[Rfam]
RNA: Small nucleolar RNA Z199
Organism: Microthlaspi erraticum
RNA sequence: GAUCAAAUGAUGAGCAAAUACUGCAACAAUAUGAAGGAUAUAUAAUCCAUAUGAUUCUUAGUAUUUAAGUCUCUGAUGAUC
Numbered sequence: 001g002a003u004c005a006a007a008u009g010a011u012g013a014g015c016a017a018a019u020a021c022u023g024c025a026a027c028a029a030u031a032u033g034a035a036g037g038a039u040a041u042a043u044a045a046u047c048c049a050u051a052u053g054a055u056u057c058u059u060a061g062u063a064u065u066u067a068a069g070u071c072u073c074u075g076a077u078g079a080u081c
Stems, first nucleotide, its partner, number of pairs: 001080001003079003036048004